This 91-nucleotide sequence from Anaerovirgula multivorans belongs to the Rfam family "c-di-GMP-I riboswitch aptamer". The base pairs follow the family's consensus structure, which is taken from published work. The source organism's lineage runs through Bacteria, Bacillati, Bacillota, Clostridia and Anaerovirgula.
RNA sequence: CACCGAUAAAGGCAAACCAUCCGAAAGGAUGAGACGCAAAGCCAUAGGGCCUAAUGCUUUAAAUAAAAGCAAUGGCAGCCGAGCUACCGAA
Numbered sequence: 001c002a003c004c005g006a007u008a009a010a011g012g013c014a015a016a017c018c019a020u021c022c023g024a025a026a027g028g029a030u031g032a033g034a035c036g037c038a039a040a041g042c043c044a045u046a047g048g049g050c051c052u053a054a055u056g057c058u059u060u061a062a063a064u065a066a067a068a069g070c071a072a073u074g075g076c077a078g079c080c081g082a083g084c085u086a087c088c089g090a091a
Stems, first nucleotide, its partner, number of pairs: 012037002018031005040085003047080002049076003056070004